Record summary
This 86-nucleotide sequence from Gracilibacillus boraciitolerans belongs to the Rfam family "c-di-GMP-I riboswitch aptamer". It scores 75 bits against the family's covariance model. From the family's description: GEMM was predicted in a large-scale screen for bacterial structured RNA regulatory elements. Genes associated with GEMM are involved in a diverse array of functions, including chemotaxis regulation, signal transduction, secretion and chitin. The base pairs follow the family's consensus structure, which is taken from published work.
RNA sequence: CUAAGAAAAAGGCAAAUCACUUGAAAAGGUGGGACGCAAAGCCAAGGUCUAACGGUGCAUAUACCUAUGACAGCCUAGCUACCUAA
Numbered sequence: 001c002u003a004a005g006a007a008a009a010a011g012g013c014a015a016a017u018c019a020c021u022u023g024a025a026a027a028g029g030u031g032g033g034a035c036g037c038a039a040a041g042c043c044a045a046g047g048u049c050u051a052a053c054g055g056u057g058c059a060u061a062u063a064c065c066u067a068u069g070a071c072a073g074c075c076u077a078g079c080u081a082c083c084u085a086a
Stems, first nucleotide, its partner, number of pairs: 012037002017032006040080003045076002047071003054065004